Description: Shown here is a 378-nucleotide part of an RNA from Olsenella sp. oral taxon 809, a member of the family "Bacterial large subunit ribosomal RNA". Taxonomically the source falls in Olsenella sp. oral taxon 809 (Bacteria, Coriobacteriia, Coriobacteriales, Atopobiaceae). The family's consensus secondary structure is taken from published work. A search with the family's covariance model found it, with a score of 2810 bits.
RNA sequence: GAGAGGGGCGUGGAAAACGCCCCCGCCGUAAACCCAAGGUUUCCUGGGCAAGGCUAAUCCUCCCAGGGUCAGUCGGGAGCUAAGGCGAGGCCGGAAGGCGUAGCCGAUGCACAGCAGGUCGACAUUCCUGCACCUCCGACGCGGCGCUAUCACCGACGGGGUGACGAAGAAGGGUAGCUCAGCGGGGUUCUGGACGUCCCCGUGAUCGCACGUAGGCCGGGGGGUUGUGAAACGCGCCCCCCGCGAGGGCCGAGGUGCGGGACGAAGCCUCGAGGCGAAGUGAGUGAGCCCACGCUUCCGAGAAAAACCCCUAGGGAGCCGCCAGGAGCCCGUACCGCAAACCGACACAGGUGGGUGGGUAGAACAUACCAAGGCGAU
Numbered sequence: 001g002a003g004a005g006g007g008g009c010g011u012g013g014a015a016a017a018c019g020c021c022c023c024c025g026c027c028g029u030a031a032a033c034c035c036a037a038g039g040u041u042u043c044c045u046g047g048g049c050a051a052g053g054c055u056a057a058u059c060c061u062c063c064c065a066g067g068g069u070c071a072g073u074c075g076g077g078a079g080c081u082a083a084g085g086c087g088a089g090g091c092c093g094g095a096a097g098g099c100g101u102a103g104c105c106g107a108u109g110c111a112c113a114g115c116a117g118g119u120c121g122a123c124a125u126u127c128c129u130g131c132a133c134c135u136c137c138g139a140c141g142c143g144g145c146g147c148u149a150u151c152a153c154c155g156a157c158g159g160g161g162u163g164a165c166g167a168a169g170a171a172g173g174g175u176a177g178c179u180c181a182g183c184g185g186g187g188u189u190c191u192g193g194a195c196g197u198c199c200c201c202g203u204g205a206u207c208g209c210a211c212g213u214a215g216g217c218c219g220g221g222g223g224g225u226u227g228u229g230a231a232a233c234g235c236g237c238c239c240c241c242c243g244c245g246a247g248g249g250c251c252g253a254g255g256u257g258c259g260g261g262a263c264g265a266a267g268c269c270u271c272g273a274g275g276c277g278a279a280g281u282g283a284g285u286g287a288g289c290c291c292a293c294g295c296u297u298c299c300g301a302g303a304a305a306a307a308c309c310c311c312u313a314g315g316g317a318g319c320c321g322c323c324a325g326g327a328g329c330c331c332g333u334a335c336c337g338c339a340a341a342c343c344g345a346c347a348c349a350g351g352u353g354g355g356u357g358g359g360u361a362g363a364a365c366a367u368a369c370c371a372a373g374g375c376g377a378u
Stems, first nucleotide, its partner, number of pairs: 005023006024376004032356004038336002043067006052060002074332004079110002084105003088101001090099003114131005134328004141322004153316002158311005166298004172291003177285005182203006204263001208258004215251003219242007227235002267276003342351002358370004
Dot-bracket structure: ....((((((.......))))))((((....((((..((...((((((...((.....)).))))))......((((.((...(((.(.(((....))).).)))...))...(((((........)))))..((((...((((........((...(((((...((((..(((..(((((((((((..........))))))(...((((...(((.(((((((.((.....)))))))))......)))...))))....)...(((....)))....)))))...)))...))))........)))))...))..))))..))))))))..)).....((......)).)))).((((.....))))..))))..